[Rfam]
RNA sequence: CUUUCAGCCCACCCCUAGGUGUGAUGGUCGUUGAAAC
Numbered sequence: 001c002u003u004u005c006a007g008c009c010c011a012c013c014c015c016u017a018g019g020u021g022u023g024a025u026g027g028u029c030g031u032u033g034a035a036a037c
Stems, first nucleotide, its partner, number of pairs: 005033004009027002013023001015021001
Rfam assigns this 37-nucleotide RNA sequence from Coleofasciculus sp. FACHB-SPT36 to the family "CRISPR RNA direct repeat element". Its family is annotated with defense response in the Gene Ontology.